[Rfam]
RNA sequence: AGAGCAGAUCAGGCAAUCGCGGCGCGCAAGCGGCGAGGAAGGUCCGGACUCCAUAUAGCAGGAUGGCGGCUAACGACCGUCCGGCGAUCGUCCCGUGCGCAAGCAUGGGGCGCGAAGCCGAGGAACAGGGCCACAGAGACGAGUCUGCGGCGAGGGCGGAUUUCGAUCCGCACCGGCACGGCAUCUCCGUGCUGCGCGUUCGGGUCACCCCGGGCGCGGCGCAGCAGGGUGAAACGCGGCAACCUCCAUCCGGAGCAACACCAAAUAGGCAUGCAUGCGGCCCCCGGGCCGUGGAGGGCGGCUAGUUCGCGCAUGCGGGUAGGUGGCUUGAGCUGGCCAGCAAUGGUCCGCCUAGAGGAAUGAUUGCCCGCGGGGCGACCCGUGUACAGAAUCCGGCCUAUCGAUCUGCUUUGCCU
Numbered sequence: 001a002g003a004g005c006a007g008a009u010c011a012g013g014c015a016a017u018c019g020c021g022g023c024g025c026g027c028a029a030g031c032g033g034c035g036a037g038g039a040a041g042g043u044c045c046g047g048a049c050u051c052c053a054u055a056u057a058g059c060a061g062g063a064u065g066g067c068g069g070c071u072a073a074c075g076a077c078c079g080u081c082c083g084g085c086g087a088u089c090g091u092c093c094c095g096u097g098c099g100c101a102a103g104c105a106u107g108g109g110g111c112g113c114g115a116a117g118c119c120g121a122g123g124a125a126c127a128g129g130g131c132c133a134c135a136g137a138g139a140c141g142a143g144u145c146u147g148c149g150g151c152g153a154g155g156g157c158g159g160a161u162u163u164c165g166a167u168c169c170g171c172a173c174c175g176g177c178a179c180g181g182c183a184u185c186u187c188c189g190u191g192c193u194g195c196g197c198g199u200u201c202g203g204g205u206c207a208c209c210c211c212g213g214g215c216g217c218g219g220c221g222c223a224g225c226a227g228g229g230u231g232a233a234a235c236g237c238g239g240c241a242a243c244c245u246c247c248a249u250c251c252g253g254a255g256c257a258a259c260a261c262c263a264a265a266u267a268g269g270c271a272u273g274c275a276u277g278c279g280g281c282c283c284c285c286g287g288g289c290c291g292u293g294g295a296g297g298g299c300g301g302c303u304a305g306u307u308c309g310c311g312c313a314u315g316c317g318g319g320u321a322g323g324u325g326g327c328u329u330g331a332g333c334u335g336g337c338c339a340g341c342a343a344u345g346g347u348c349c350g351c352c353u354a355g356a357g358g359a360a361u362g363a364u365u366g367c368c369c370g371c372g373g374g375g376c377g378a379c380c381c382g383u384g385u386a387c388a389g390a391a392u393c394c395g396g397c398c399u400a401u402c403g404a405u406c407u408g409c410u411u412u413g414c415c416u
Stems, first nucleotide, its partner, number of pairs: 001412010011401001012368007020035002023032003040399003044396005049255004056304004061251005066080004081122001082120004123246002128244002130240003145228002147225002150222003155217001259325004269316006296308004332351002335348005
This 416-nucleotide sequence from Pigmentiphaga litoralis belongs to the Rfam family "Bacterial RNase P class A". The source organism's lineage runs through Bacteria, Pseudomonadati, Pseudomonadota, Burkholderiales and Pigmentiphaga. It scores 188 bits against the family's covariance model. Ribonuclease P (RNase P) is a ubiquitous endoribonuclease, found in archaea, bacteria and eukarya as well as chloroplasts and mitochondria. Its best characterised activity is the generation of mature 5'-ends of tRNAs by cleaving the 5'-leader elements of precursor-tRNAs. Cellular RNase Ps are ribonucleoproteins. RNA from bacterial RNase Ps retains its catalytic activity in the absence of the protein subunit, i.e. it is a ribozyme. Isolated eukaryotic and archaeal RNase P RNA has not been shown to retain its catalytic function, but is still essential for the catalytic activity of the holoenzyme. Although the archaeal and eukaryotic holoenzyme s have a much greater protein content than the bacterial ones, the RNA cores from all the three lineages are homologous -- helices corresponding to P1, P2, P3, P4, and P10/11 are common to all cellular RNase P RNAs. Yet, there is considerable sequence variation, particularly among the eukaryotic RNAs. Identified in Yersinia as Ysr151/RnpB. The family's consensus secondary structure is taken from published work.